Shown here is a 107-nucleotide RNA from Protea cynaroides, a member of the family "Plastid-psbA-1 3UTR RNA".
Rfam describes the family as follows. Plastid psbA-1 is a non-coding RNA (ncRNA) present in plastids. It was identified in inverted repeat sequences in the 3 prime untranslate region (3UTR) of photosystem II quinone-binding protein (psbA).
The family is grouped with related families in Rfam's "Plastid-psbA 3UTR RNA clan".
The literature on the family includes a 2023 paper in Plant Commun by Richter et al., "Retrograde signaling in plants: A critical review focusing on the GUN pathway and beyond".
NCBI's taxonomy places the organism under Eukaryota, Embryophyta, Tracheophyta, Magnoliopsida, Protea.

RNA sequence: UUGAAGCUCCAUCUGUAAAUGGAUAAGAGUUAGUCUUAGUGUAUACGAGUUGUUGGAGGAGCAAUACCAACCUCUUGAUAAAACAAGAUUUGCGGUAUUGCUCAUUC
Number, nucleotide and partner (000 for none) at each position: 001u000002u000003g000004a000005a000006g000007c000008u023009c022010c021011a020012u019013c000014u000015g000016u000017a000018a000019a012020u011021g010022g009023a008024u000025a000026a000027g000028a000029g000030u000031u000032a000033g000034u000035c000036u000037u000038a000039g000040u000041g000042u000043a000044u000045a000046c000047g000048a000049g000050u000051u000052g000053u000054u000055g107056g106057a105058g000059g103060a102061g101062c100063a099064a098065u097066a096067c095068c000069a000070a091071c000072c000073u088074c087075u086076u085077g000078a000079u000080a000081a000082a000083a000084c000085a076086a075087g074088a073089u000090u000091u070092g000093c000094g000095g067096u066097a065098u064099u063100g062101c061102u060103c059104a000105u057106u056107c055